[Rfam]
RNA sequence: UAACUAUUAGACGAAGUGAAUGGGUUGCGGCCGGUGCUUGUAACUUGGCCAGACCCAGGAAAGUCCCCGGGCCAUCAACUGCAGAGAUGCAGGCUCGGAAACGAGUAAAGCUUAAGGCCGUUGGGGUCUGAUCUUGCCAUUGGCAAGGCGGGGCAGAGACAAGUGUGGAGCCCUAAUGACCCUAAUGCCGAAGCAAAUUGGCCGAUGCCCACAGUUAUUCACUUGGUCCCUAAGCUUGGACUAACUGAACGGGGCUUAUGAUCUAGUAGUU
Numbered sequence: 001u002a003a004c005u006a007u008u009a010g011a012c013g014a015a016g017u018g019a020a021u022g023g024g025u026u027g028c029g030g031c032c033g034g035u036g037c038u039u040g041u042a043a044c045u046u047g048g049c050c051a052g053a054c055c056c057a058g059g060a061a062a063g064u065c066c067c068c069g070g071g072c073c074a075u076c077a078a079c080u081g082c083a084g085a086g087a088u089g090c091a092g093g094c095u096c097g098g099a100a101a102c103g104a105g106u107a108a109a110g111c112u113u114a115a116g117g118c119c120g121u122u123g124g125g126g127u128c129u130g131a132u133c134u135u136g137c138c139a140u141u142g143g144c145a146a147g148g149c150g151g152g153g154c155a156g157a158g159a160c161a162a163g164u165g166u167g168g169a170g171c172c173c174u175a176a177u178g179a180c181c182c183u184a185a186u187g188c189c190g191a192a193g194c195a196a197a198u199u200g201g202c203c204g205a206u207g208c209c210c211a212c213a214g215u216u217a218u219u220c221a222c223u224u225g226g227u228c229c230c231u232a233a234g235c236u237u238g239g240a241c242u243a244a245c246u247g248a249a250c251g252g253g254g255c256u257u258a259u260g261a262u263c264u265a266g267u268a269g270u271u
Base pairs, nucleotide, nucleotide: 002271003270004269005268006267007266008265009264010263011262014224015223016222017221018220019219022056023055024054025053061257062256063255065254066253067252068251080091081090082089083088093106094105095104096103097102138187139186140185141184142183143182147180149178150177151173152172153171154170161166226241227240228239229238

Record summary:
RNase MRP: a 271-nucleotide RNA from Gossypium harknessii. The family's RNA type in Rfam is ribozyme. Pairs were carried over by alignment from the consensus structure, which is taken from published work. Taxonomically the source falls in Gossypium (Eukaryota, Streptophytina, Embryophyta, Malvaceae). The match comes from Rfam's covariance-model search (78 bits).